[Rfam]
RNA sequence: UGGCCGCUGAUAUGUCUGGUAUUCUUGGGUUCGAUACUCUGAAAAACGAACCAAAGUAGCAGACGUAUCGACGGCCGG
Numbered sequence: 001u002g003g004c005c006g007c008u009g010a011u012a013u014g015u016c017u018g019g020u021a022u023u024c025u026u027g028g029g030u031u032c033g034a035u036a037c038u039c040u041g042a043a044a045a046a047c048g049a050a051c052c053a054a055a056g057u058a059g060c061a062g063a064c065g066u067a068u069c070g071a072c073g074g075c076c077g078g
Stems, first nucleotide, its partner, number of pairs: 008070011020058003028052004
Dot-bracket structure: .......(((((((((((.(((.....((((.................))))...))).)))))))))))........
This 78-nucleotide sequence from Caenorhabditis remanei belongs to the Rfam family "mir-50 microRNA precursor family". A reference for the family is Lau et al. (2001), "An abundant class of tiny RNAs with probable regulatory roles in Caenorhabditis elegans", Science. Lineage of the source: Eukaryota > Eumetazoa > Nematoda > Rhabditina > Caenorhabditis. Its family is annotated with miRNA-mediated post-transcriptional gene silencing and RISC complex in the Gene Ontology.